Rfam assigns this 213-nucleotide RNA sequence from Streptomyces colonosanans to the family "Streptomyces sRNA 4677". Taxonomically the source falls in Streptomyces (Bacteria, Actinomycetota, Actinomycetes, Kitasatosporales). From the family's description: Located in the intergenic region between anti-sigma factor SCO4677 gene and a putative regulatory protein gene SCO4676. scr4677 expression requires the SCO4677 activity and scr4677 sRNA itself seem to affect the levels of the SCO4676-associated transcripts. By type it is a small RNA.
RNA sequence: GGUCCCGGCGGGCCGCUGACCUCCUGAAGUACCGGGGAAAGAACUACCCGCCCACCCACCCUCCCCGCCCACGUCACUCGUCCGGGUGACCGGCUUGCAGGGGCGGGAUCCGGACGGUUACGUUCGCCGCGACAACCGCAAACAGAUACGGCCCCCGGCCGGGACGGCAAUCCCGAACGAGGGCCUCACCGAUCAGGAAGAGAACGCUUCCCG
Numbered sequence: 001g002g003u004c005c006c007g008g009c010g011g012g013c014c015g016c017u018g019a020c021c022u023c024c025u026g027a028a029g030u031a032c033c034g035g036g037g038a039a040a041g042a043a044c045u046a047c048c049c050g051c052c053c054a055c056c057c058a059c060c061c062u063c064c065c066c067g068c069c070c071a072c073g074u075c076a077c078u079c080g081u082c083c084g085g086g087u088g089a090c091c092g093g094c095u096u097g098c099a100g101g102g103g104c105g106g107g108a109u110c111c112g113g114a115c116g117g118u119u120a121c122g123u124u125c126g127c128c129g130c131g132a133c134a135a136c137c138g139c140a141a142a143c144a145g146a147u148a149c150g151g152c153c154c155c156c157g158g159c160c161g162g163g164a165c166g167g168c169a170a171u172c173c174c175g176a177a178c179g180a181g182g183g184c185c186u187c188a189c190c191g192a193u194c195a196g197g198a199a200g201a202g203a204a205c206g207c208u209u210c211c212c213g
Stems, first nucleotide, its partner, number of pairs: 007193001009191002011069003015066001074089006102128005150185005156179002161174004196211005